The record is an 86-nucleotide RNA from Polarella glacialis, which matches "Selenocysteine transfer RNA" in Rfam. Clan: tRNA clan.
RNA sequence: GUCAGGGUGAGUCGGGCUGGUGCUCGGACCAGUCUUCAACUCCAGGGGCAUGGGGACAUGCAGGAGUCCGACUCUCCCUCCCUGAU
Number, nucleotide and partner (000 for none) at each position: 001g086002u085003c084004a083005g082006g081007g080008u000009g078010a000011g000012u027013c026014g025015g024016g023017c022018u000019g000020g000021u000022g017023c016024u015025c014026g013027g012028a000029c045030c000031a000032g042033u000034c000035u000036u000037c000038a000039a000040c000041u000042c032043c000044a000045g029046g000047g000048g061049c060050a059051u058052g057053g000054g000055g000056a000057c052058a051059u050060g049061c048062a000063g077064g076065a075066g074067u000068c000069c000070g000071a000072c000073u000074c066075u065076c064077c063078c009079u000080c007081c006082c005083u004084g003085a002086u001

The literature on the family includes a 1997 paper in Nucleic Acids Res by Lowe and Eddy, "tRNAscan-SE: a program for improved detection of transfer RNA genes in genomic sequence". The match comes from Rfam's covariance-model search (48 bits).